The record is a 66-nucleotide sequence from Chinchilla lanigera, which matches "Selenocysteine insertion sequence 1" in Rfam. Its family is annotated with selenocysteine incorporation in the Gene Ontology. Pairs were carried over by alignment from the consensus structure, which is taken from published work. The source organism's lineage runs through Eukaryota, Craniata, Mammalia, Rodentia and Chinchilla. The incorporation of selenocysteine into a protein sequence is directed by an in-frame UGA codon (usually a stop codon) within the coding region of the mRNA. Selenoprotein mRNAs contain a conserved secondary structure in the 3' UTR that is required for the distinction of UGA stop from UGA selenocysteine. The selenocysteine insertion sequence (SECIS) is around 60 nt in length and adopts a hairpin structure which is sufficiently well-defined and conserved to act as a computational screen for selenoprotein genes. The family has 61 seed sequences and 3,793 matches in Rfam 15.1. It is annotated as a cis-regulatory element.

[Rfam]
RNA sequence: UUUGCAUUAAUGAGGGCUACACAGAAAAUCUUUCUAAGAAUUUGUGUAGAUCUGAUGUUUGGCAAA
Numbered sequence: 001u002u003u004g005c006a007u008u009a010a011u012g013a014g015g016g017c018u019a020c021a022c023a024g025a026a027a028a029u030c031u032u033u034c035u036a037a038g039a040a041u042u043u044g045u046g047u048a049g050a051u052c053u054g055a056u057g058u059u060u061g062g063c064a065a066a
Stems, first nucleotide, its partner, number of pairs: 001066005015052002017049008030038003